[Rfam]
RNA sequence: AUAUAUGUAAAAGCGCCUGAACUAAGUCUGAGACGACAGUGGCUUAGUUGACGAGGAGGAGGUUUAUCGAAGUAUCGGCGGAUGCCUCCCGGUUGUUGAUUAUCACAAUCGAAAGCUUAAUGUGAAAAACAAAGGGGUGACUCUUUGGACAAACGCAUUAAGAAGAUAAUCG
Numbered sequence: 001a002u003a004u005a006u007g008u009a010a011a012a013g014c015g016c017c018u019g020a021a022c023u024a025a026g027u028c029u030g031a032g033a034c035g036a037c038a039g040u041g042g043c044u045u046a047g048u049u050g051a052c053g054a055g056g057a058g059g060a061g062g063u064u065u066a067u068c069g070a071a072g073u074a075u076c077g078g079c080g081g082a083u084g085c086c087u088c089c090c091g092g093u094u095g096u097u098g099a100u101u102a103u104c105a106c107a108a109u110c111g112a113a114a115g116c117u118u119a120a121u122g123u124g125a126a127a128a129a130c131a132a133a134g135g136g137g138u139g140a141c142u143c144u145u146u147g148g149a150c151a152a153a154c155g156c157a158u159u160a161a162g163a164a165g166a167u168a169a170u171c172g
Stems, first nucleotide, its partner, number of pairs: 020049009058089005067078004090111006116162007130147007